[Rfam]
RNA: mir-374 microRNA precursor family
RNA sequence: ACACAGACAAUUACAAUACAAUCUGAUAAGUGUUGUAACACUUAUCAGGUUGUAUUAUAAUGGCCGAUGUA
Numbered sequence: 001a002c003a004c005a006g007a008c009a010a011u012u013a014c015a016a017u018a019c020a021a022u023c024u025g026a027u028a029a030g031u032g033u034u035g036u037a038a039c040a041c042u043u044a045u046c047a048g049g050u051u052g053u054a055u056u057a058u059a060a061u062g063g064c065c066g067a068u069g070u071a
Stems, first nucleotide, its partner, number of pairs: 013058001015056007023048003027044007